[Rfam]
RNA sequence: GCUGGGCUUGGUAGUGCGAGCUUGUAACUCAAGCGAGAGCAUUAAGAUGGUGGAAGAAUUGGGCUUGCUCUGAAGGCUGGGCUUAGGUUGCUAUCUACUGGCCUGCCCAUUCCAAGUGGUGAGUUGAUGGAGUAGUCUUAGCGAAGGCGGAGGCUACUCCCUCCUUAGAUUGGAGGGUACUGCGUGAGGCUGGCUUCACAGAGCAGCGAAAACCUCCUCCUCUCUGCAGUGGAAGGAUAACAAGCUGUGGUGUCCAAAGCACACUAAUGCCUAAUGGGCUGUCCAAAUUGAACCAUCGUCUUU
Numbered sequence: 001g002c003u004g005g006g007c008u009u010g011g012u013a014g015u016g017c018g019a020g021c022u023u024g025u026a027a028c029u030c031a032a033g034c035g036a037g038a039g040c041a042u043u044a045a046g047a048u049g050g051u052g053g054a055a056g057a058a059u060u061g062g063g064c065u066u067g068c069u070c071u072g073a074a075g076g077c078u079g080g081g082c083u084u085a086g087g088u089u090g091c092u093a094u095c096u097a098c099u100g101g102c103c104u105g106c107c108c109a110u111u112c113c114a115a116g117u118g119g120u121g122a123g124u125u126g127a128u129g130g131a132g133u134a135g136u137c138u139u140a141g142c143g144a145a146g147g148c149g150g151a152g153g154c155u156a157c158u159c160c161c162u163c164c165u166u167a168g169a170u171u172g173g174a175g176g177g178u179a180c181u182g183c184g185u186g187a188g189g190c191u192g193g194c195u196u197c198a199c200a201g202a203g204c205a206g207c208g209a210a211a212a213c214c215u216c217c218u219c220c221u222c223u224c225u226g227c228a229g230u231g232g233a234a235g236g237a238u239a240a241c242a243a244g245c246u247g248u249g250g251u252g253u254c255c256a257a258a259g260c261a262c263a264c265u266a267a268u269g270c271c272u273a274a275u276g277g278g279c280u281g282u283c284c285a286a287a288u289u290g291a292a293c294c295a296u297c298g299u300c301u302u303u
Stems, first nucleotide, its partner, number of pairs: 001040003004023007028037003044302010057289001059287002062283003069277002074272004079262001081260004086255001089252002092250001099247004104242002107236002110234005116227004121222003126163002129160011141148002172217005181210001183208003190201003
A member of the RNA family "Plant signal recognition particle RNA" from Ipomoea nil, 303 nucleotides long. The family's consensus secondary structure is taken from published work. It is annotated as a non-coding RNA gene. Gene Ontology terms of the family: SRP-dependent cotranslational protein targeting to membrane, signal sequence recognition and signal recognition particle, endoplasmic reticulum targeting.